[Rfam]
Repression of heat shock gene expression (ROSE) element: a 92-nucleotide sequence from Rhizobium sp. AC44/96. The literature on the family includes a 2004 paper in J Bacteriol by Balsiger et al., "Replicon-specific regulation of small heat shock genes in Agrobacterium tumefaciens". The source organism's lineage runs through Bacteria, Pseudomonadati, Pseudomonadota, Alphaproteobacteria and Rhizobium. Pairs were carried over by alignment from the consensus structure, which is taken from published work. The family's RNA type in Rfam is RNA thermoregulator. About the family: This family represents a 5' UTR cis-regulatory element found in heat shock mRNAs and is known as the ROSE (repression of heat shock gene expression) element. The ROSE element is a negative regulator of heat shock gene expression. The secondary structure is thought to be regulated by temperature.

RNA sequence: CCGGCCGCUGUGGACGGGGCUGGCUACGCUGGAAGCGCCAACUUUCGGCGCUCCGUACCCAUGUUGCUUCAAGGAGGAUAUGGCUAUGGCAA
Dot-bracket structure: ((((((.((......))))))))...(((((((((......)))))))))..(((((.(((((((.(((....)))))))))).)))))...